The record is a 98-nucleotide RNA from Liparis tanakae, which matches "Vault RNA" in Rfam. For this family Rfam cites "Evolution of Vault RNAs" (Stadler et al., Mol Biol Evol, 2009). Rfam classes the family as a non-coding RNA gene. Rfam describes the family as follows. This family of RNAs are found as part of the enigmatic vault ribonucleoprotein complex. The complex consists of a major vault protein (MVP), two minor vault proteins (VPARP and TEP1), and several small untranslated RNA molecules. It has been suggested that the vault complex is involved in drug resistance. It scores 64 bits against the family's covariance model. NCBI's taxonomy places the organism under Eukaryota, Teleostomi, Eurypterygia, Perciformes, Liparis.
[Rfam]
RNA sequence: GCAUCGGUUUAGCUCAGUGGUUACUUCUGUCAACCAAACGUGCCCACUUAUCGGUCCGCGGGCUGGGAGUUCGACCACGGGCGCUGUCCGGUGUUUUU
Number, nucleotide and partner (000 for none) at each position: 001g000002c093003a092004u091005c090006g089007g088008u000009u000010u000011a000012g082013c081014u080015c079016a000017g078018u077019g076020g075021u000022u000023a000024c000025u000026u074027c073028u000029g071030u000031c000032a000033a000034c000035c000036a000037a000038a000039c000040g000041u000042g000043c000044c000045c000046a000047c000048u000049u000050a000051u000052c000053g000054g000055u000056c000057c000058g000059c000060g000061g000062g000063c000064u000065g000066g000067g000068a000069g000070u000071u029072c000073g027074a026075c020076c019077a018078c017079g015080g014081g013082c012083g000084c000085u000086g000087u000088c007089c006090g005091g004092u003093g002094u000095u000096u000097u000098u000